[Rfam]
RNA: tRNA
Nucleotides: 069
Stems, first nucleotide, its partner, number of pairs: 001069007010022004024040004045062003049058001
Number, partner (000 for none) and nucleotide at each position: 001069a002068a003067a004066g005065a006064g007063c008000u009000a010022g011021u012020u013019a014000a015000a016000a017000a018000a019013u020012a021011a022010c023000c024040c025039c026038a027037g028000a029000u030000u031000g032000u033000c034000a035000g036000a037027c038026u039025g040024g041000a042000a043000u044000u045062a046061u047060c048000u049058g050000u051000a052000a053000c054000c055000a056000c057000c058049c059000u060047g061046a062045u063007g064006c065005u066004c067003u068002u069001u